[Rfam]
RNA sequence: GCGAUGAGCUGAAUUGUGUAAGUCGAGCACAUACCUUAUGGUACACACUAUGUGGAGUGUGGUGACUCGCCUCAAUUUUUUCGAACAAGGCACCUGUUUUUAACAGGUGCC
Number, nucleotide and partner (000 for none) at each position: 001g000002c000003g000004a000005u000006g000007a000008g000009c000010u000011g000012a000013a000014u075015u074016g073017u000018g071019u000020a000021a000022g000023u000024c069025g068026a067027g066028c064029a063030c062031a000032u000033a042034c041035c000036u000037u000038a000039u000040g000041g034042u033043a000044c061045a060046c000047a058048c057049u056050a000051u000052g000053u000054g000055g000056a049057g048058u047059g000060u045061g044062g030063u029064g028065a000066c027067u026068c025069g024070c000071c018072u000073c016074a015075a014076u000077u000078u000079u000080u000081u000082c000083g000084a000085a000086c000087a000088a000089g111090g110091c109092a108093c107094c106095u105096g104097u103098u000099u000100u000101u000102a000103a097104c096105a095106g094107g093108u092109g091110c090111c089